[Rfam]
RNA sequence: CUUACCAAGGAUCGCCCCCCGUCAGCGAGUUUCGCCCACGGGGGCUGUUCUA
Numbered sequence: 001c002u003u004a005c006c007a008a009g010g011a012u013c014g015c016c017c018c019c020c021g022u023c024a025g026c027g028a029g030u031u032u033c034g035c036c037c038a039c040g041g042g043g044g045c046u047g048u049u050c051u052a
Base pairs, nucleotide, nucleotide: 016044017043018042019041020040021039022038025035026034027033028032
The family of this 52-nucleotide sequence from Rhodobacteraceae bacterium HIMB11 is "ffh sRNA". NCBI's taxonomy places the organism under Bacteria, Pseudomonadati, Alphaproteobacteria, Rhodobacterales, Paracoccaceae. On this family, see Meyer et al., BMC Genomics 2009: "Identification of candidate structured RNAs in the marine organism 'Candidatus Pelagibacter ubique'".